The family of this 131-nucleotide sequence from Leptobrachium leishanense is "Small nucleolar RNA SNORA24". The base pairs follow the family's consensus structure, which was predicted with RNAfold. About the family: ACA24 is a member of the H/ACA class of snoRNA that guide the sites of modification of uridines to pseudouridines. Its family is annotated with RNA processing and nucleolus in the Gene Ontology.

RNA sequence: CUCCAUGAAUCCAUGGGACCUGUCUUUUGUGUGGCAGAUUCCCUUCCUAGCCAUGGAAAAUAGAUGUCUUGAUUCCCACCACACCUGCUACCAUACAGGGUUACCAGGCUGUUGGGAAUUGAGCAACACUU
Numbered sequence: 001c002u003c004c005a006u007g008a009a010u011c012c013a014u015g016g017g018a019c020c021u022g023u024c025u026u027u028u029g030u031g032u033g034g035c036a037g038a039u040u041c042c043c044u045u046c047c048u049a050g051c052c053a054u055g056g057a058a059a060a061u062a063g064a065u066g067u068c069u070u071g072a073u074u075c076c077c078a079c080c081a082c083a084c085c086u087g088c089u090a091c092c093a094u095a096c097a098g099g100g101u102u103a104c105c106a107g108g109c110u111g112u113u114g115g116g117a118a119u120u121g122a123g124c125a126a127c128a129c130u131u
Base pairs, nucleotide, nucleotide: 002057003056004055005054006053007052015043016042017041018040020037021036022035023034024033070128071127073125077121078120080116082114085107086106087105090102091100092099